[Rfam]
RNA sequence: CAAGGUCCGUGAUGAUUUAAAUAUUUGCCUACAUUGUCUGAUUGCUGUAGUUGAAGAGUCUUUUUGUACUAAGUCUGAGACUUUG
Numbered sequence: 001c002a003a004g005g006u007c008c009g010u011g012a013u014g015a016u017u018u019a020a021a022u023a024u025u026u027g028c029c030u031a032c033a034u035u036g037u038c039u040g041a042u043u044g045c046u047g048u049a050g051u052u053g054a055a056g057a058g059u060c061u062u063u064u065u066g067u068a069c070u071a072a073g074u075c076u077g078a079g080a081c082u083u084u085g
Base pairs, nucleotide, nucleotide: 001085002084004082005081006080007079

A member of the RNA family "Small nucleolar RNA SNORD34" from Salvia splendens, 85 nucleotides long. For this family Rfam cites "Purified box C/D snoRNPs are able to reproduce site-specific 2'-O-methylation of target RNA in vitro" (Galardi et al., Mol Cell Biol, 2002). It is annotated as a C/D-box small nucleolar RNA. Clan: SNORD34 clan. Lineage of the source: Eukaryota > Magnoliopsida > Nepetoideae > Salvia > core Calosphace. Rfam links the family to the GO terms RNA processing and nucleolus. snoRNA U34 is found in intron 5 of the ribosomal protein L13a gene in humans. It scores 40 bits against the family's covariance model.